[Rfam]
RNA sequence: UCAUCCAAUAACUCAUUCAAACAAGACUUUUCGCGGUUUAUCCCCAAACACCUACAAUCAUCAUGUCUCCCUGCUCUUGCAACUGCUGCUCCGGCAACUGCAGCUCCUGCUCUUGCUCCAGCUGCAGCGUAAGUCGUC
Numbered sequence: 001u002c003a004u005c006c007a008a009u010a011a012c013u014c015a016u017u018c019a020a021a022c023a024a025g026a027c028u029u030u031u032c033g034c035g036g037u038u039u040a041u042c043c044c045c046a047a048a049c050a051c052c053u054a055c056a057a058u059c060a061u062c063a064u065g066u067c068u069c070c071c072u073g074c075u076c077u078u079g080c081a082a083c084u085g086c087u088g089c090u091c092c093g094g095c096a097a098c099u100g101c102a103g104c105u106c107c108u109g110c111u112c113u114u115g116c117u118c119c120a121g122c123u124g125c126a127g128c129g130u131a132a133g134u135c136g137u138c
Stems, first nucleotide, its partner, number of pairs: 072096004079089003100125003109116002